Small nucleolar RNA Z279/snoR105/snoR108: a 107-nucleotide sequence from Chenopodium quinoa. Its Rfam clan is "snoU13 clan". Rfam describes the family as follows. This family includes the plant snoRNAs known as Z279, snoR105 and snoR108. On this family, see Marker et al., Curr Biol 2002: "Experimental RNomics: identification of 140 candidates for small non-messenger RNAs in the plant Arabidopsis thaliana". Its family is annotated with nucleolus and RNA processing in the Gene Ontology. The family's RNA type in Rfam is C/D-box small nucleolar RNA. The organism belongs to Chenopodium, within Eukaryota.

[Rfam]
RNA sequence: GGGAUAUGAUGAGUGGUCAUUAUCGCAUAUUUUAUUGCGACUUGGGUGUUCGCCCCAAGCCUUAUUUACGACAAUAUGGGCACCCCAAUUUUAUACCAUCUGAUCCC
Numbered sequence: 001g002g003g004a005u006a007u008g009a010u011g012a013g014u015g016g017u018c019a020u021u022a023u024c025g026c027a028u029a030u031u032u033u034a035u036u037g038c039g040a041c042u043u044g045g046g047u048g049u050u051c052g053c054c055c056c057a058a059g060c061c062u063u064a065u066u067u068a069c070g071a072c073a074a075u076a077u078g079g080g081c082a083c084c085c086c087a088a089u090u091u092u093a094u095a096c097c098a099u100c101u102g103a104u105c106c107c
Base pairs, nucleotide, nucleotide: 001107002106003105004104014098015097016096017095023040024039025038026037044085045084046083047082048081049080050079062078066074